[Rfam]
Description:
A member of the RNA family "RAGATH-18 RNA", 61 nucleotides long. Rfam's curators put it in the seed alignment. Rfam describes the family as follows. Actinobacteria, Firmicutes, Fusobacteria, Thermotogae (1 example).

RNA sequence: CCUGUGGAGUGUCAUACAAACGAUGGUAGCUUUGGCAAAAUCGGAUACGAUGAAACAGGAA
Number, nucleotide and partner (000 for none) at each position: 001c059002c058003u057004g056005u055006g000007g000008a000009g048010u047011g046012u045013c044014a000015u000016a000017c000018a000019a000020a000021c043022g042023a041024u000025g000026g000027u000028a000029g036030c035031u000032u000033u000034g000035g030036c029037a000038a000039a000040a000041u023042c022043g021044g013045a012046u011047a010048c009049g000050a000051u000052g000053a000054a000055a005056c004057a003058g002059g001060a000061a000